Record summary: The record is a 119-nucleotide RNA, which matches "DUF3800-III RNA" in Rfam. The family's consensus secondary structure is taken from published work.

Nucleotides: 119
Base pairs, nucleotide, nucleotide: 002118003117004116005115006114009112010111011110012109018107019106020105021104027101028100029099034047035046036045037044038043071082072081073080074079
Number, partner (000 for none) and nucleotide at each position: 001000a002118g003117a004116c005115c006114g007000g008000a009112c010111u011110c012109g013000u014000a015000a016000g017000u018107c019106c020105u021104g022000u023000g024000a025000u026000u027101g028100g029099u030000u031000g032000c033000u034047c035046u036045u037044a038043c039000g040000u041000a042000a043038g044037u045036a046035g047034g048000u049000g050000a051000u052000a053000c054000u055000c056000c057000g058000u059000c060000g061000g062000c063000a064000u065000u066000a067000u068000g069000c070000c071082c072081a073080u074079c075000u076000u077000c078000g079074g080073a081072u082071g083000u084000g085000a086000a087000c088000g089000g090000u091000g092000a093000g094000a095000a096000u097000c098000g099029a100028c101027c102000a103000c104021c105020a106019g107018g108000g109012u110011g111010a112009g113000a114006c115005g116004g117003u118002c119000a